[Rfam]
RNA sequence: CAGUGAAGUGAUGACUAUUGUUUCCCUAUUGGUUUGACUGCCGUCAUGAUGGCAUCUAUUGCUUCAAACUUUCUGAUCACUG
Numbered sequence: 001c002a003g004u005g006a007a008g009u010g011a012u013g014a015c016u017a018u019u020g021u022u023u024c025c026c027u028a029u030u031g032g033u034u035u036g037a038c039u040g041c042c043g044u045c046a047u048g049a050u051g052g053c054a055u056c057u058a059u060u061g062c063u064u065c066a067a068a069c070u071u072u073c074u075g076a077u078c079a080c081u082g
Stems, first nucleotide, its partner, number of pairs: 002081004036056001039054004

Background: Shown here is an 82-nucleotide RNA sequence from Marchantia polymorpha, a member of the family "Small nucleolar RNA Z102/R77". The match comes from Rfam's covariance-model search (63 bits). It is annotated as a C/D-box small nucleolar RNA. The base pairs follow the family's consensus structure, which was predicted with PFOLD. Rfam links the family to the GO terms RNA processing and nucleolus. The literature on the family includes a 2001 paper in J Mol Biol by Barneche et al., "Identification of 66 box C/D snoRNAs in Arabidopsis thaliana: extensive gene duplications generated multiple isoforms predicting new ribosomal RNA 2'-O-methylation sites". Clan: SNORD44 clan.